This 119-nucleotide RNA sequence from Heterocephalus glaber belongs to the Rfam family "Small nucleolar RNA SNORA40".
A search with the family's covariance model found it, with a score of 84 bits.
It is annotated as an H/ACA-box small nucleolar RNA.
The snoRNA ACA 40 belongs to the H/ACA family of snoRNAs and guides the pseudouridylation of 28S rRNA subunit at position U4565. NB This family has a high threshold value to exclude a large number of closely related sequences that do not appear to have conserved H and ACA boxes, and may be pseudogenes.
Rfam 15.1 lists 2,550 matches to the family in 517 species.
A reference for the family is Ofengand and Bakin (1997), "Mapping to nucleotide resolution of pseudouridine residues in large subunit ribosomal RNAs from representative eukaryotes, prokaryotes, archaebacteria, mitochondria and chloroplasts", J Mol Biol.
NCBI's taxonomy places the organism under Eukaryota, Opisthokonta, Tetrapoda, Euarchontoglires, Heterocephalus.
RNA sequence: CACUCUGUGUGUUUUGUUGAACCUGUGGACAAAAACAAAUAGGUGUGAAAAACAAAUCCCCUUUGCAACUCAGAACUCAUUGUUCAGUAUGAGUUUGGGUCCACAUAAGAAGGAAAGUU
Numbered sequence: 001c002a003c004u005c006u007g008u009g010u011g012u013u014u015u016g017u018u019g020a021a022c023c024u025g026u027g028g029a030c031a032a033a034a035a036c037a038a039a040u041a042g043g044u045g046u047g048a049a050a051a052a053c054a055a056a057u058c059c060c061c062u063u064u065g066c067a068a069c070u071c072a073g074a075a076c077u078c079a080u081u082g083u084u085c086a087g088u089a090u091g092a093g094u095u096u097g098g099g100u101c102c103a104c105a106u107a108a109g110a111a112g113g114a115a116a117g118u119u
Stems, first nucleotide, its partner, number of pairs: 001045004006041002008037001011036001012034006022027001057115001059113002062109004071098001073096008